[Rfam]
RNA sequence: CACAUCAGCGCGCUUUGCUUAUGUGGCAACAAAGCGCGACCUUCAGAACGCGAUUUGUGUCCACGUCAGCAUAGCGCGCUGACGUGG
Numbered sequence: 001c002a003c004a005u006c007a008g009c010g011c012g013c014u015u016u017g018c019u020u021a022u023g024u025g026g027c028a029a030c031a032a033a034g035c036g037c038g039a040c041c042u043u044c045a046g047a048a049c050g051c052g053a054u055u056u057g058u059g060u061c062c063a064c065g066u067c068a069g070c071a072u073a074g075c076g077c078g079c080u081g082a083c084g085u086g087g
Base pairs, nucleotide, nucleotide: 001086002085003084005082006081007080008079009078010077011076012075013074014073016071017070018069019068021066023064024063025062026061029058030057031056032055033054035052036051037050038049041046
Shown here is an 87-nucleotide RNA from Gossypium mustelinum, a member of the family "MIR7486 microRNA precursor family". The source organism's lineage runs through Eukaryota, Euphyllophyta, Spermatophyta, eudicotyledons and Gossypium. Gene Ontology terms of the family: RISC complex and miRNA-mediated post-transcriptional gene silencing.